[Rfam]
RNA: small nucleolar RNA snoR135
Organism: Aquilegia coerulea
RNA sequence: UAAGCAAGGAUUGUGUGUAUCGACGUAGUGCUUGAAUCUAUGCAUUUUUAGUCGAAAGUAUUCCUUGCAAUACUAAUUUUAAUUAAGGGGAAGGUGGGCAGUUGUGUUUCAUUCUCUUAUUAUUGAUUCUUCAACAAUCAUUUUCCCCACAUUU
Numbered sequence: 001u002a003a004g005c006a007a008g009g010a011u012u013g014u015g016u017g018u019a020u021c022g023a024c025g026u027a028g029u030g031c032u033u034g035a036a037u038c039u040a041u042g043c044a045u046u047u048u049u050a051g052u053c054g055a056a057a058g059u060a061u062u063c064c065u066u067g068c069a070a071u072a073c074u075a076a077u078u079u080u081a082a083u084u085a086a087g088g089g090g091a092a093g094g095u096g097g098g099c100a101g102u103u104g105u106g107u108u109u110c111a112u113u114c115u116c117u118u119a120u121u122a123u124u125g126a127u128u129c130u131u132c133a134a135c136a137a138u139c140a141u142u143u144u145c146c147c148c149a150c151a152u153u154u
Stems, first nucleotide, its partner, number of pairs: 004068007015045006087148011101135004